Shown here is a 70-nucleotide RNA sequence from Neotoma lepida, a member of the family "Small nucleolar RNA SNORD25". A search with the family's covariance model found it, with a score of 40 bits. The organism belongs to Neotoma, within Eukaryota. The family has 12 seed sequences and 985 matches in Rfam 15.1. The family's consensus secondary structure was predicted with PFOLD. Rfam links the family to the GO terms RNA processing and nucleolus. On this family, see Qu et al., Nucleic Acids Res 2001: "Identification of 10 novel snoRNA gene clusters from Arabidopsis thaliana". The family's RNA type in Rfam is C/D-box small nucleolar RNA.
RNA sequence: AUCCCCAAUGAUGAGUACCUUUUCACAGACCUGUACUGAUUUCCAUGAGGAUAAGUAACUCUGAGGAGGC
Dot-bracket structure: .((.((..........................................................)).)).